[Rfam]
RNA sequence: CCCAGCGGUAGUCAGCAGUUCAGACCUGUACCGUGCCUGAACUAGUGUUACACUGCUGGAAAAGAAAGGCGCAGCCAGUUUGACUCUACCCAGAUGCUGCUGUUUUAGUGGUGUCUGAUUCUGAGUCAUGGCUGUGCUGUGUCCCCUCUGAGAGUUGAAUGUUCCCAAAUACACUGGGGCAUUCCUAGUCUGGGGACAAACAUU
Numbered sequence: 001c002c003c004a005g006c007g008g009u010a011g012u013c014a015g016c017a018g019u020u021c022a023g024a025c026c027u028g029u030a031c032c033g034u035g036c037c038u039g040a041a042c043u044a045g046u047g048u049u050a051c052a053c054u055g056c057u058g059g060a061a062a063a064g065a066a067a068g069g070c071g072c073a074g075c076c077a078g079u080u081u082g083a084c085u086c087u088a089c090c091c092a093g094a095u096g097c098u099g100c101u102g103u104u105u106u107a108g109u110g111g112u113g114u115c116u117g118a119u120u121c122u123g124a125g126u127c128a129u130g131g132c133u134g135u136g137c138u139g140u141g142u143c144c145c146c147u148c149u150g151a152g153a154g155u156u157g158a159a160u161g162u163u164c165c166c167a168a169a170u171a172c173a174c175u176g177g178g179g180c181a182u183u184c185c186u187a188g189u190c191u192g193g194g195g196a197c198a199a200a201c202a203u204u
Base pairs, nucleotide, nucleotide: 002059003058004057005056006055007054008053009052011051012050015046016045018043020041021039022038023037025035069137070136071135072134073133074132075131076130077129082127083126084125085124086123088120091117092116093115095113096112097111098110099109100108101107140198141197142196143195144194145193146192157184158183160181161180162179163178164177165176
Shown here is a 204-nucleotide RNA from Clupea harengus, a member of the family "Small nucleolar RNA SNORA74". From the family's description: U19 belongs to the H/ACA class of snoRNAs. snoRNAs bind a number of proteins (including dyskerin, Gar1p and Nop10p in the case of the H/ACA class) to form snoRNP complexes. This class are thought to guide the sites of modification of uridines to pseudouridines by forming direct base pairing interactions with substrate RNAs. Rfam links the family to the GO terms RNA processing and nucleolus. Taxonomically the source falls in Clupea (Eukaryota, Neopterygii, Otomorpha, Clupeiformes). It is annotated as an H/ACA-box small nucleolar RNA.